[Rfam]
RNA sequence: GGAGAUUGGCGGCAGACGCAUCCCUCGCCAACCGGGUCAGGUCCGGAAGGAAGCAGCCCUAACGAGUUAGGUGCGGGUUGCCUGUCCAGUCUCCCAC
Numbered sequence: 001g002g003a004g005a006u007u008g009g010c011g012g013c014a015g016a017c018g019c020a021u022c023c024c025u026c027g028c029c030a031a032c033c034g035g036g037u038c039a040g041g042u043c044c045g046g047a048a049g050g051a052a053g054c055a056g057c058c059c060u061a062a063c064g065a066g067u068u069a070g071g072u073g074c075g076g077g078u079u080g081c082c083u084g085u086c087c088a089g090u091c092u093c094c095c096a097c
Base pairs, nucleotide, nucleotide: 004091005090006089007088008087011082012081013080014079017075018074019073020072021071022070024066025065026064027063034059035058036057037056042051043050044049
The family of this 97-nucleotide RNA sequence from Rhodobiaceae bacterium UBA7378 is "Bacterial small signal recognition particle RNA". For this family Rfam cites "SRPDB: Signal Recognition Particle Database" (Rosenblad et al., Nucleic Acids Res, 2003). Taxonomically the source falls in Rhodobiaceae (Bacteria, Pseudomonadati, Pseudomonadota, Hyphomicrobiales). Its family is annotated with signal recognition particle, plasma membrane targeting and SRP-dependent cotranslational protein targeting to membrane, signal sequence recognition in the Gene Ontology. Rfam describes the family as follows. The signal recognition particle (SRP) is a universally conserved ribonucleoprotein involved in the co-translational targeting of proteins to membranes. The base pairs follow the family's consensus structure, which is taken from published work. By type it is a non-coding RNA gene.